[Rfam]
Bacteroides-1 RNA: an 85-nucleotide RNA sequence from Bacteroides finegoldii.
RNA sequence: AUGCGAAUCACCUGAUAAAGCUUCUUAUGGGUAUGUGAAUAUAGAUAAGUCAAGCAAGAUAUGCCUCCCCGGCAUAACAGGAAGA
Numbered sequence: 001a002u003g004c005g006a007a008u009c010a011c012c013u014g015a016u017a018a019a020g021c022u023u024c025u026u027a028u029g030g031g032u033a034u035g036u037g038a039a040u041a042u043a044g045a046u047a048a049g050u051c052a053a054g055c056a057a058g059a060u061a062u063g064c065c066u067c068c069c070c071g072g073c074a075u076a077a078c079a080g081g082a083a084g085a
Base pairs, nucleotide, nucleotide: 020055021054022053025048026047027046028045031042032041033040034039060076061075062074063073064072065071

Lineage of the source: Bacteria > Pseudomonadati > Bacteroidota > Bacteroidaceae > Bacteroides. By type it is a small RNA. Pairs were carried over by alignment from the consensus structure, which is taken from published work.